[Rfam]
RNA sequence: UGGCAAUGAAGUAGCAGACUGGUUUGGCAUUAGCUGCUUGCGGAGCCAGACCAUGAGGUAAACGGAAACCACAAGCCGAAUAGAUUCAACGAAUCGAAAGAAAACGCUUGAU
Dot-bracket structure: ((((......((((..(.(((..[[[[...))).)..))))...))))..............((...........]]]]...((((.....)))).........))......
Numbered sequence: 001u002g003g004c005a006a007u008g009a010a011g012u013a014g015c016a017g018a019c020u021g022g023u024u025u026g027g028c029a030u031u032a033g034c035u036g037c038u039u040g041c042g043g044a045g046c047c048a049g050a051c052c053a054u055g056a057g058g059u060a061a062a063c064g065g066a067a068a069c070c071a072c073a074a075g076c077c078g079a080a081u082a083g084a085u086u087c088a089a090c091g092a093a094u095c096g097a098a099a100g101a102a103a104a105c106g107c108u109u110g111a112u
Stems, first nucleotide, its partner, number of pairs: 001048004011041004017035001019033003024079004063106002083095004

The family of this 112-nucleotide RNA sequence is "drum RNA". Rfam's curators write: Firmicutes, Bacteroidetes (1 example), Proteobacteria (2 examples), Spirochaetes (2 examples). The family's consensus secondary structure is taken from published work.